About this RNA:
A member of the RNA family "Actino-pnp RNA" from Kribbella antiqua, 62 nucleotides long. The organism belongs to Kribbella, within Bacteria. The match comes from Rfam's covariance-model search (69 bits).
[Rfam]
RNA sequence: ACCGGUCCUCGGUAGUGGCUUUCGGGUGUCAACACACCCGCGGGCCUCGAUCGAAGACCGGC
Number, nucleotide and partner (000 for none) at each position: 001a000002c061003c060004g059005g058006u057007c056008c000009u054010c053011g052012g051013u050014a000015g000016u000017g046018g045019c044020u043021u042022u000023c040024g039025g038026g037027u036028g035029u034030c000031a000032a000033c000034a029035c028036a027037c026038c025039c024040g023041c000042g021043g020044g019045c018046c017047u000048c000049g000050a013051u012052c011053g010054a009055a000056g007057a006058c005059c004060g003061g002062c000